[Rfam]
RNA sequence: AUAUUGUUUUCGCUUAGUCUCUCAUUGAUGAGAGAGCGGGGGAACCAAAAAUGAAUUGGGGUUAAUACAGUGUGUUCACACUGUUAGGGUUAUACUUUUCAAUCCGAACCCGUCAGCUAACUUCGUAGGCGUAGAAAAGUUGACAA
Numbered sequence: 001a002u003a004u005u006g007u008u009u010u011c012g013c014u015u016a017g018u019c020u021c022u023c024a025u026u027g028a029u030g031a032g033a034g035a036g037c038g039g040g041g042g043a044a045c046c047a048a049a050a051a052u053g054a055a056u057u058g059g060g061g062u063u064a065a066u067a068c069a070g071u072g073u074g075u076u077c078a079c080a081c082u083g084u085u086a087g088g089g090u091u092a093u094a095c096u097u098u099u100c101a102a103u104c105c106g107a108a109c110c111c112g113u114c115a116g117c118u119a120a121c122u123u124c125g126u127a128g129g130c131g132u133a134g135a136a137a138a139g140u141u142g143a144c145a146a
Stems, first nucleotide, its partner, number of pairs: 011131004018035007036126006046058002059111003067084004087105004
Source information: Rfam assigns this 146-nucleotide RNA sequence from Desulforamulus ruminis to the family "c-di-AMP riboswitch aptamer (ydaO/yuaA leader)". Gene Ontology terms of the family: cyclic-di-AMP binding and regulation of gene expression. The source organism's lineage runs through Bacteria, Bacillota, Eubacteriales, Peptococcaceae and Desulforamulus ruminis.